Description:
A member of the RNA family "mir-2731 microRNA precursor family" from Bombyx mori, 91 nucleotides long.
[Rfam]
RNA sequence: AAACCUAACAGAUGCGAGACCAUGGUAUGUGGAAAUAAAAGCCACCCGGUUUUUAUCUUUCCACACCAAAAGAUCCACAUUUCCCGAGGUG
Numbered sequence: 001a002a003a004c005c006u007a008a009c010a011g012a013u014g015c016g017a018g019a020c021c022a023u024g025g026u027a028u029g030u031g032g033a034a035a036u037a038a039a040a041g042c043c044a045c046c047c048g049g050u051u052u053u054u055a056u057c058u059u060u061c062c063a064c065a066c067c068a069a070a071a072g073a074u075c076c077a078c079a080u081u082u083c084c085c086g087a088g089g090u091g
Base pairs, nucleotide, nucleotide: 003090004089005088006087010082011081012080013079014078016076018075019074021072023068024067025066026065029064030063031062032061033060034059035056036055037054038053039052040051041050042049043048
The family has 2 seed sequences and 8 matches in Rfam 15.1. Taxonomically the source falls in Bombyx (Eukaryota, Protostomia, Altocrustacea, Hexapoda). Rfam's curators put it in the seed alignment.